[Rfam]
RNA sequence: UAUCUUACUUUUGUUAAACAAUGAAAAAUAAUACAAUAAAUACAGGUUGGUGGAACUCUCUUAUCUAAUAAGUGAGAAAAAACCUAUAUGUAUGUAACAUAAAAUUUAAAAAGGCUUAUC
Number, nucleotide and partner (000 for none) at each position: 001u000002a000003u000004c000005u000006u000007a000008c000009u000010u000011u000012u000013g000014u000015u000016a000017a000018a000019c000020a000021a000022u000023g000024a000025a000026a000027a000028a000029u000030a000031a000032u000033a000034c000035a000036a000037u096038a095039a000040a093041u092042a091043c090044a089045g000046g087047u086048u000049g084050g083051u082052g000053g000054a000055a000056c076057u075058c074059u000060c000061u071062u070063a069064u000065c000066u000067a000068a000069u063070a062071a061072g000073u000074g058075a057076g056077a000078a000079a000080a000081a000082a051083c050084c049085u000086a047087u046088a000089u044090g043091u042092a041093u040094g000095u038096a037097a000098c000099a000100u000101a000102a000103a000104a000105u000106u000107u000108a000109a000110a000111a000112a000113g000114g000115c000116u000117u000118a000119u000120c000

The family of this 120-nucleotide RNA from Polaribacter atrinae is "Bacteroidete tryptophan peptide leader RNA". The match comes from Rfam's covariance-model search (58 bits). Lineage of the source: Bacteria > Pseudomonadati > Flavobacteriia > Flavobacteriales > Polaribacter. It is annotated as a cis-regulatory leader.